[Rfam]
RNA: mir-344 microRNA precursor family
RNA sequence: UUUCCAGUCAGGCUCCUGGCUUAAUUCUAGCUAUUAGCUGGAAUUAGGUCAGGCCUGACUGUAAA
Numbered sequence: 001u002u003u004c005c006a007g008u009c010a011g012g013c014u015c016c017u018g019g020c021u022u023a024a025u026u027c028u029a030g031c032u033a034u035u036a037g038c039u040g041g042a043a044u045u046a047g048g049u050c051a052g053g054c055c056u057g058a059c060u061g062u063a064a065a
Stems, first nucleotide, its partner, number of pairs: 007059003011055004017051008027041005